sbcD RNA: a 143-nucleotide RNA from Paraburkholderia tropica. NCBI's taxonomy places the organism under Bacteria, Pseudomonadota, Betaproteobacteria, Burkholderiales, Paraburkholderia.
RNA sequence: CCUGCGGCGAAAACUCAACGUUUUCGGAAAAGGGCUGUCUGCGCGACGUGAUCAUGUCGCGCCGGGAACGACUUUCCGUUCCCUGUUAUGAGCCUCUGGCUCCCUGUGCGCCACGUCCCCGAAAGGGACGUGGCGUAUGGGUC
Numbered sequence: 001c002c003u004g005c006g007g008c009g010a011a012a013a014c015u016c017a018a019c020g021u022u023u024u025c026g027g028a029a030a031a032g033g034g035c036u037g038u039c040u041g042c043g044c045g046a047c048g049u050g051a052u053c054a055u056g057u058c059g060c061g062c063c064g065g066g067a068a069c070g071a072c073u074u075u076c077c078g079u080u081c082c083c084u085g086u087u088a089u090g091a092g093c094c095u096c097u098g099g100c101u102c103c104c105u106g107u108g109c110g111c112c113a114c115g116u117c118c119c120c121g122a123a124a125g126g127g128a129c130g131u132g133g134c135g136u137a138u139g140g141g142u143c
Stems, first nucleotide, its partner, number of pairs: 008026007037086002041062009064083007090102005103140002106138014